[Rfam]
RNA sequence: GCUAAGAUGUAGCCUUUAUCUGCAUUUGCACCUGCACCUUCUUAUUUUUAUCUGCUUCAGCUUUCAGAAACUAAGGCAAUAUAUAUAUGUACUAAAGCAGAUGUGUUGGUGCAGUUGGUGAAAACAGGAUGAGGCUGAGAAAAGGAGGUGCAGGUGCAGGUGCAGAUGAAAGCCAUUUUGGU
Numbered sequence: 001g002c003u004a005a006g007a008u009g010u011a012g013c014c015u016u017u018a019u020c021u022g023c024a025u026u027u028g029c030a031c032c033u034g035c036a037c038c039u040u041c042u043u044a045u046u047u048u049u050a051u052c053u054g055c056u057u058c059a060g061c062u063u064u065c066a067g068a069a070a071c072u073a074a075g076g077c078a079a080u081a082u083a084u085a086u087a088u089g090u091a092c093u094a095a096a097g098c099a100g101a102u103g104u105g106u107u108g109g110u111g112c113a114g115u116u117g118g119u120g121a122a123a124a125c126a127g128g129a130u131g132a133g134g135c136u137g138a139g140a141a142a143a144g145g146a147g148g149u150g151c152a153g154g155u156g157c158a159g160g161u162g163c164a165g166a167u168g169a170a171a172g173c174c175a176u177u178u179u180g181g182u
Base pairs, nucleotide, nucleotide: 001182002181003180004179005178006177007176008175009174012173013172015170016169017168018167019166020165021164022163023162024161025160026159027158028157029156030155031154032153033152034151035150036149037148038147039146050102051101052100053099054098055097056096057095059093060092
A member of the RNA family "MIR530 microRNA precursor family" from Hibiscus syriacus, 182 nucleotides long. The literature on the family includes a 2008 paper in Plant J by Lu et al., "Stress-responsive microRNAs in Populus". Pairs were carried over by alignment from the consensus structure, which was predicted with WAR. Rfam 15.1 lists 119 matches to the family in 78 species.